RNA sequence: AAGAACAGUCGCCGCAGAGAUGGGGUUUCUAAGCGGCAUGUGCCUUCUGCUCCCUCUAUGCAAUGCCCUUGGAAAUCCCAAAUAUGCUGGUGACGUCU
Numbered sequence: 001a002a003g004a005a006c007a008g009u010c011g012c013c014g015c016a017g018a019g020a021u022g023g024g025g026u027u028u029c030u031a032a033g034c035g036g037c038a039u040g041u042g043c044c045u046u047c048u049g050c051u052c053c054c055u056c057u058a059u060g061c062a063a064u065g066c067c068c069u070u071g072g073a074a075a076u077c078c079c080a081a082a083u084a085u086g087c088u089g090g091u092g093a094c095g096u097c098u
Stems, first nucleotide, its partner, number of pairs: 008094006014087003021080009031070003035067005041062003